[Rfam]
RNA sequence: AACUCCGUCUUAGGGGAGUAGCCGCUUGUAAAGGCAAACCGUUCAUCACGGUUUUUCCUUUCAGGAUUUAGGUCAACAUAAUUGAUUCCUCAAUGAAUCAUGGCCUAAAUGCAACAGCAGCCGCUGUUUUGGCAAGACCUUUGACACAUGACUCCUUCGCAAAGGGCGGGUGGAGUAUGUGUCAUUGGAACAAGCCCGCC
Numbered sequence: 001a002a003c004u005c006c007g008u009c010u011u012a013g014g015g016g017a018g019u020a021g022c023c024g025c026u027u028g029u030a031a032a033g034g035c036a037a038a039c040c041g042u043u044c045a046u047c048a049c050g051g052u053u054u055u056u057c058c059u060u061u062c063a064g065g066a067u068u069u070a071g072g073u074c075a076a077c078a079u080a081a082u083u084g085a086u087u088c089c090u091c092a093a094u095g096a097a098u099c100a101u102g103g104c105c106u107a108a109a110u111g112c113a114a115c116a117g118c119a120g121c122c123g124c125u126g127u128u129u130u131g132g133c134a135a136g137a138c139c140u141u142u143g144a145c146a147c148a149u150g151a152c153u154c155c156u157u158c159g160c161a162a163a164g165g166g167c168g169g170g171u172g173g174a175g176u177a178u179g180u181g182u183c184a185u186u187g188g189a190a191c192a193a194g195c196c197c198g199c200c
Base pairs, nucleotide, nucleotide: 026064027063028062066110067109068108069107070106071105072104073103074102075101083100084099085098086097087096117200
Shown here is a 200-nucleotide RNA from Zooshikella ganghwensis, a member of the family "Manganese Mn2+ riboswitch aptamer (yybP-ykoY)". Taxonomically the source falls in Zooshikella (Bacteria, Pseudomonadota, Gammaproteobacteria, Oceanospirillales). This RNA was originally discovered in E. coli during a large scale screen and was named SraF. The family was later found to exist upstream of related families of protein genes in many bacteria, including the the yybP and ykoK genes in B. subtilis. The specific functions of these proteins are unknown, but this structured RNA element may be involved in their genetic regulation as a riboswitch. The match comes from Rfam's covariance-model search (49 bits).